[Rfam]
RNA sequence: AGGGGUAUAGUUCCAACGGCUAGAACGCCGGUCUCCAAAACCGGAUGUUGGGGGUUCGAAUCCCUCUACCCCUG
Numbered sequence: 001a002g003g004g005g006u007a008u009a010g011u012u013c014c015a016a017c018g019g020c021u022a023g024a025a026c027g028c029c030g031g032u033c034u035c036c037a038a039a040a041c042c043g044g045a046u047g048u049u050g051g052g053g054g055u056u057c058g059a060a061u062c063c064c065u066c067u068a069c070c071c072c073u074g
Base pairs, nucleotide, nucleotide: 001073002072003071004070005069006068007067010026011025012024013023028044029043030042031041032040050066051065052064053063054062
RNA: tRNA